[Rfam]
RNA sequence: CUUCCCAUUUAUUUGCUGCUCUCGUCUCUCGGUGAUAUGAGUGGUUAUACGCAUGGGGUAAAGUAACACUGGACCACUGUAAAAGGAGGUGGAGCAAUCAUUUCAUCUCUUGUCCGUGGUCUAGACAUCG
Numbered sequence: 001c002u003u004c005c006c007a008u009u010u011a012u013u014u015g016c017u018g019c020u021c022u023c024g025u026c027u028c029u030c031g032g033u034g035a036u037a038u039g040a041g042u043g044g045u046u047a048u049a050c051g052c053a054u055g056g057g058g059u060a061a062a063g064u065a066a067c068a069c070u071g072g073a074c075c076a077c078u079g080u081a082a083a084a085g086g087a088g089g090u091g092g093a094g095c096a097a098u099c100a101u102u103u104c105a106u107c108u109c110u111u112g113u114c115c116g117u118g119g120u121c122u123a124g125a126c127a128u129c130g
Stems, first nucleotide, its partner, number of pairs: 003058006015045007022037001025035002069124008078116002081113001086109009
The record is a 130-nucleotide RNA sequence from Catagonus wagneri, which matches "Small nucleolar RNA SNORA20" in Rfam. The base pairs follow the family's consensus structure, which was predicted with ILM. Rfam's curators write: ACA20 is a member of the H/ACA class of snoRNA that guide the sites of modification of uridines to pseudouridines. It scores 106 bits against the family's covariance model. The family's RNA type in Rfam is H/ACA-box small nucleolar RNA.